[Rfam]
Description
The record is a 115-nucleotide sequence from Phyllobacterium sp. YR531, which matches "Alphaproteobacterial ar14" in Rfam. A search with the family's covariance model found it, with a score of 73 bits.
RNA sequence: UUGGGUUGUUGGGCUCUUUCCUCCCAGAUAUCCCAACGCCGAAUGUACUGCACCUCCUCCCGCGGUACAUUUACAAUCAGGACCGCUGCACCUCCUCCCGCAGCGGUCCUUUUUU
Numbered sequence: 001u002u003g004g005g006u007u008g009u010u011g012g013g014c015u016c017u018u019u020c021c022u023c024c025c026a027g028a029u030a031u032c033c034c035a036a037c038g039c040c041g042a043a044u045g046u047a048c049u050g051c052a053c054c055u056c057c058u059c060c061c062g063c064g065g066u067a068c069a070u071u072u073a074c075a076a077u078c079a080g081g082a083c084c085g086c087u088g089c090a091c092c093u094c095c096u097c098c099c100g101c102a103g104c105g106g107u108c109c110u111u112u113u114u115u
Stems, first nucleotide, its partner, number of pairs: 003034003007030004041072010079110011
Its family is annotated with biological process involved in symbiotic interaction in the Gene Ontology. Pairs were carried over by alignment from the consensus structure.